Shown here is a 103-nucleotide RNA from Bacillus sp. FJAT-27986, a member of the family "TPP riboswitch aptamer (THI element)". Gene Ontology term of the family: thiamine pyrophosphate binding. The organism belongs to Bacillus, within Bacteria. The family's consensus secondary structure is taken from published work.
RNA sequence: AGUUGAUUGCGGGGGGACUCAAAUUGCGAGUUGAGAAGGUUAAAACCUGACCCUUUGAACCUGUACAGUUAAUACUGACGUAGGGAGCGAUAACAUCACUUUG
Number, nucleotide and partner (000 for none) at each position: 001a000002g000003u000004u000005g000006a091007u090008u089009g088010c087011g054012g053013g052014g051015g000016g048017a031018c030019u029020c028021a000022a000023a000024u000025u000026g000027c000028g020029a019030g018031u017032u000033g000034a000035g000036a000037a000038g047039g046040u045041u000042a000043a000044a000045a040046c039047c038048u016049g000050a000051c014052c013053c012054u011055u000056u000057g000058a000059a000060c084061c083062u082063g081064u000065a000066c077067a076068g075069u000070u000071a000072a000073u000074a000075c068076u067077g066078a000079c000080g000081u063082a062083g061084g060085g000086a000087g010088c009089g008090a007091u006092a000093a000094c000095a000096u000097c000098a000099c000100u000101u000102u000103g000